Shown here is a 76-nucleotide sequence from Propithecus coquereli, a member of the family "mir-320 microRNA precursor family". The source organism's lineage runs through Eukaryota, Amniota, Eutheria, Indriidae and Propithecus. The literature on the family includes a 2006 paper in Genome Res by Berezikov et al., "Many novel mammalian microRNA candidates identified by extensive cloning and RAKE analysis". The family's consensus secondary structure was predicted with RNAalifold.

RNA sequence: CAAUUGAUCCUCGUUCUAUUCCCAGUUCUUCCUGGAGUUGGGAAAAGCUGGGUUGAGAGGGUGGGGGAUGGGGGUG
Numbered sequence: 001c002a003a004u005u006g007a008u009c010c011u012c013g014u015u016c017u018a019u020u021c022c023c024a025g026u027u028c029u030u031c032c033u034g035g036a037g038u039u040g041g042g043a044a045a046a047g048c049u050g051g052g053u054u055g056a057g058a059g060g061g062u063g064g065g066g067g068a069u070g071g072g073g074g075u076g
Base pairs, nucleotide, nucleotide: 014059015058016057017056021052022051023050024049025048029044030043031042032041033040034039